Plastid-atpF group II-D1 intron: a 53-nucleotide sequence from Lupinus angustifolius. Gene Ontology term of the family: Group II intron splicing. Rfam 15.1 lists 1,372 matches to the family in 227 species. It scores 67 bits against the family's covariance model. Rfam describes the family as follows. Plastid atpF is a non-coding RNA (ncRNA) recognised in plastids. It has been reported in the intron group II-D1 region of ATP synthase (atpF) genes. A reference for the family is Richter et al. (2023), "Retrograde signaling in plants: A critical review focusing on the GUN pathway and beyond", Plant Commun. The base pairs follow the family's consensus structure, which was predicted with LocARNA. Taxonomically the source falls in Lupinus (Eukaryota, Mesangiospermae, Pentapetalae, fabids).

RNA sequence: UGGAAUUUUCUCGAUAUAGAACACUCAUGUCGAUAAAAUGGCUUGAAUCCUCU
Numbered sequence: 001u002g003g004a005a006u007u008u009u010c011u012c013g014a015u016a017u018a019g020a021a022c023a024c025u026c027a028u029g030u031c032g033a034u035a036a037a038a039u040g041g042c043u044u045g046a047a048u049c050c051u052c053u
Base pairs, nucleotide, nucleotide: 011033012032013031014030015029016028017027